[Rfam]
This 81-nucleotide RNA sequence from Caenorhabditis japonica belongs to the Rfam family "mir-74 microRNA precursor family". Lineage of the source: Eukaryota > Opisthokonta > Eumetazoa > Rhabditina > Caenorhabditis. A reference for the family is Warf et al. (2011), "Improved annotation of C. elegans microRNAs by deep sequencing reveals structures associated with processing by Drosha and Dicer", RNA. Pairs were carried over by alignment from the consensus structure, which was predicted with RNAalifold.
RNA sequence: CACGCGCGAUUGGGCUUCCAUAUCUUUCCCAGCUGAAACAUCUUUUAACGCUGGCAAGAAAUGGCAGUCUACUCGCGCAUG
Numbered sequence: 001c002a003c004g005c006g007c008g009a010u011u012g013g014g015c016u017u018c019c020a021u022a023u024c025u026u027u028c029c030c031a032g033c034u035g036a037a038a039c040a041u042c043u044u045u046u047a048a049c050g051c052u053g054g055c056a057a058g059a060a061a062u063g064g065c066a067g068u069c070u071a072c073u074c075g076c077g078c079a080u081g
Stems, first nucleotide, its partner, number of pairs: 002080001004078006012070005018064004023059004029054005034047003